[Rfam]
Shown here is a 95-nucleotide RNA from Papaver nudicaule, a member of the family "Small nucleolar RNA snR60/Z15/Z230/Z193/J17". Rfam 15.1 lists 3,592 matches to the family in 1,855 species. For this family Rfam cites "A computational screen for methylation guide snoRNAs in yeast" (Lowe and Eddy, Science, 1999).
RNA sequence: GGAGUUGAAGUGAUGAUUCUUGCAUAGUUCAGAUGAGAUUCGUCUCUGAUUAAUCUAUACAAAAGUUAGUCUUUGGCUCCUAUCUGAUCUACUCC
Numbered sequence: 001g002g003a004g005u006u007g008a009a010g011u012g013a014u015g016a017u018u019c020u021u022g023c024a025u026a027g028u029u030c031a032g033a034u035g036a037g038a039u040u041c042g043u044c045u046c047u048g049a050u051u052a053a054u055c056u057a058u059a060c061a062a063a064a065g066u067u068a069g070u071c072u073u074u075g076g077c078u079c080c081u082a083u084c085u086g087a088u089c090u091a092c093u094c095c
Stems, first nucleotide, its partner, number of pairs: 004092002007089002